The family of this 133-nucleotide sequence from Terrapene triunguis is "Small nucleolar RNA SNORD94".
Rfam links the family to the GO terms nucleolus and RNA processing.
The literature on the family includes a 2002 paper in Mol Cell Biol by Galardi et al., "Purified box C/D snoRNPs are able to reproduce site-specific 2'-O-methylation of target RNA in vitro".
The base pairs follow the family's consensus structure, which was predicted with RNAalifold.
[Rfam]
RNA sequence: AAGGCAAUGAUGAUUGGCGCAGGGGUACAGACCUCAGCUGAAUCAUGGGAGCUGAAUGUAAAUGUUUCUCUGUCCUGCAUGUAGUGGGGCAUCUGAGAAUAUUUACAUGAGACUUGUGCCUAGUCUGAGCUGU
Numbered sequence: 001a002a003g004g005c006a007a008u009g010a011u012g013a014u015u016g017g018c019g020c021a022g023g024g025g026u027a028c029a030g031a032c033c034u035c036a037g038c039u040g041a042a043u044c045a046u047g048g049g050a051g052c053u054g055a056a057u058g059u060a061a062a063u064g065u066u067u068c069u070c071u072g073u074c075c076u077g078c079a080u081g082u083a084g085u086g087g088g089g090c091a092u093c094u095g096a097g098a099a100u101a102u103u104u105a106c107a108u109g110a111g112a113c114u115u116g117u118g119c120c121u122a123g124u125c126u127g128a129g130c131u132g133u
Stems, first nucleotide, its partner, number of pairs: 001133001003131003
Dot-bracket structure: (.(((...........................................................................................................................))).)